[Rfam]
RNA sequence: CGAGUCGACCGGGCGGCCGCGUCGGCGCAUCCCUGCGGGGUUGCGUCGCCGAGGAACGUCCGGGCUCCACAGGGCAGGGUGGUUGCUAACGGCAACCCGGGGUGACCCGCGGGAAAGUGCCACAGAGAACAGACCGCCCAGCAGUGGGUAAGGGUGAAACGGUGGGGUAAGAGCCCACCAGCGCCCCGGGUGACCGGGGCGGCUCGGUAAACCCCACCCGGAGCAAGGUCAAAAGGGCCCGAUCCCUUCGGGGUGACGGCCUGCGCAGGCGUUCGAGGGCGGCCCGCCCGAUGCCUGCGGGUAGACCGCUGGAGCCUGCCGGCAACGGCAGGCCGAGAUGGAUGGCCGCCCCCUGCCGCAGGGCAGGGACAGAACCCGGCGUACAGGUCGACUCGUCCG
Numbered sequence: 001c002g003a004g005u006c007g008a009c010c011g012g013g014c015g016g017c018c019g020c021g022u023c024g025g026c027g028c029a030u031c032c033c034u035g036c037g038g039g040g041u042u043g044c045g046u047c048g049c050c051g052a053g054g055a056a057c058g059u060c061c062g063g064g065c066u067c068c069a070c071a072g073g074g075c076a077g078g079g080u081g082g083u084u085g086c087u088a089a090c091g092g093c094a095a096c097c098c099g100g101g102g103u104g105a106c107c108c109g110c111g112g113g114a115a116a117g118u119g120c121c122a123c124a125g126a127g128a129a130c131a132g133a134c135c136g137c138c139c140a141g142c143a144g145u146g147g148g149u150a151a152g153g154g155u156g157a158a159a160c161g162g163u164g165g166g167g168u169a170a171g172a173g174c175c176c177a178c179c180a181g182c183g184c185c186c187c188g189g190g191u192g193a194c195c196g197g198g199g200c201g202g203c204u205c206g207g208u209a210a211a212c213c214c215c216a217c218c219c220g221g222a223g224c225a226a227g228g229u230c231a232a233a234a235g236g237g238c239c240c241g242a243u244c245c246c247u248u249c250g251g252g253g254u255g256a257c258g259g260c261c262u263g264c265g266c267a268g269g270c271g272u273u274c275g276a277g278g279g280c281g282g283c284c285c286g287c288c289c290g291a292u293g294c295c296u297g298c299g300g301g302u303a304g305a306c307c308g309c310u311g312g313a314g315c316c317u318g319c320c321g322g323c324a325a326c327g328g329c330a331g332g333c334c335g336a337g338a339u340g341g342a343u344g345g346c347c348g349c350c351c352c353c354u355g356c357c358g359c360a361g362g363g364c365a366g367g368g369a370c371a372g373a374a375c376c377c378g379g380c381g382u383a384c385a386g387g388u389c390g391a392c393u394c395g396u397c398c399g
Stems, first nucleotide, its partner, number of pairs: 001395010011384001012350007020051002023048006056382003060379005065223004072285004077219005082096005097111001098109004112214002117212002119208003134153002136149005161179006181203001182201008227307004265298006277289004314333008
Shown here is a 399-nucleotide RNA sequence from Dactylosporangium sucinum, a member of the family "Bacterial RNase P class A". A search with the family's covariance model found it, with a score of 283 bits. By type it is a ribozyme. Lineage of the source: Bacteria > Actinomycetota > Actinomycetes > Micromonosporales > Dactylosporangium. From the family's description: Ribonuclease P (RNase P) is a ubiquitous endoribonuclease, found in archaea, bacteria and eukarya as well as chloroplasts and mitochondria.